[Rfam]
RNA: Alphaproteobacterial ar14
RNA sequence: AGAAAUCUCGCCAGGGUCUACCUCCUCCCAGACCCUGUGAGAUACGGCCGGAGUUUACCUCCUCCCAAACGACGGCCACCGAGACACCCGCCGGACCUCCUCCCCCGGCGGGUGUUUUCG
Numbered sequence: 001a002g003a004a005a006u007c008u009c010g011c012c013a014g015g016g017u018c019u020a021c022c023u024c025c026u027c028c029c030a031g032a033c034c035c036u037g038u039g040a041g042a043u044a045c046g047g048c049c050g051g052a053g054u055u056u057a058c059c060u061c062c063u064c065c066c067a068a069a070c071g072a073c074g075g076c077c078a079c080c081g082a083g084a085c086a087c088c089c090g091c092c093g094g095a096c097c098u099c100c101u102c103c104c105c106c107g108g109c110g111g112g113u114g115u116u117u118u119c120g
Stems, first nucleotide, its partner, number of pairs: 007041003012037007046077005053070003084115011